[Rfam]
RNA sequence: AAACUAAUAACAUUUGUACCGAAGACAGCAGGUGCUCAAAUCGCUUAAUUUCCUGCCGAGGUCAUACGAUAGAUUAUAAAACGCACUUAUUUUAGCGGCUAUUGUAUACUACCUCCAUGUCUGUAUCAGUAUGGAGGUAUUUUAUUGUCUGG
Numbered sequence: 001a002a003a004c005u006a007a008u009a010a011c012a013u014u015u016g017u018a019c020c021g022a023a024g025a026c027a028g029c030a031g032g033u034g035c036u037c038a039a040a041u042c043g044c045u046u047a048a049u050u051u052c053c054u055g056c057c058g059a060g061g062u063c064a065u066a067c068g069a070u071a072g073a074u075u076a077u078a079a080a081a082c083g084c085a086c087u088u089a090u091u092u093u094a095g096c097g098g099c100u101a102u103u104g105u106a107u108a109c110u111a112c113c114u115c116c117a118u119g120u121c122u123g124u125a126u127c128a129g130u131a132u133g134g135a136g137g138u139a140u141u142u143u144a145u146u147g148u149c150u151g152g
Stems, first nucleotide, its partner, number of pairs: 028056005034044002112137009
RNA: Ribosomal protein L10 leader
Organism: Niallia endozanthoxylica